The record is a 76-nucleotide RNA from Crocodylus porosus, which matches "Mammalian CPEB3 ribozyme" in Rfam.
The mammalian CPEB3 ribozyme is a self cleaving RNA located in the second intron of the CPEB3 gene which belongs to a family of genes regulating messenger RNA polyadenylation.
Rfam 15.1 lists 5,706 matches to the family in 197 species.
For this family Rfam cites "A genomewide search for ribozymes reveals an HDV-like sequence in the human CPEB3 gene" (Salehi-Ashtiani et al., Science, 2006).
[Rfam]
Nucleotides: 076
Base pairs, nucleotide, nucleotide: 014043016041017040020076021075022074023073024072025071028038029037048065049064050063051062052061053060
Number, partner (000 for none) and nucleotide at each position: 001000g002000u003000c004000g005000c006000a007000a008000g009000u010000c011000c012000a013000a014043g015000a016041c017040c018000a019000u020076a021075g022074c023073a024072g025071a026000a027000c028038c029037a030000u031000c032000c033000a034000c035000a036000g037029u038028g039000u040017g041016g042000c043014c044000c045000u046000g047000u048065c049064a050063g051062g052061u053060u054000c055000c056000a057000a058000c059000a060053a061052a062051c063050c064049u065048g066000u067000g068000a069000a070000c071025u072024c073023u074022g075021c076020u